RNA sequence: CAAAAAACAGGCCUUUUCUUCCCAGUUCUUCCUGGAGUCGGGAAAAGCUGGGUUGAGAGGGCGGGAAAAAACAAAA
Number, nucleotide and partner (000 for none) at each position: 001c000002a000003a000004a000005a000006a000007a000008c000009a000010g000011g000012c000013c000014u059015u058016u057017u056018c055019u000020u000021c052022c051023c050024a049025g048026u000027u000028c000029u044030u043031c042032c041033u040034g039035g000036a000037g000038u000039c034040g033041g032042g031043a030044a029045a000046a000047g000048c025049u024050g023051g022052g021053u000054u000055g018056a017057g016058a015059g014060g000061g000062c000063g000064g000065g000066a000067a000068a000069a000070a000071a000072c000073a000074a000075a000076a000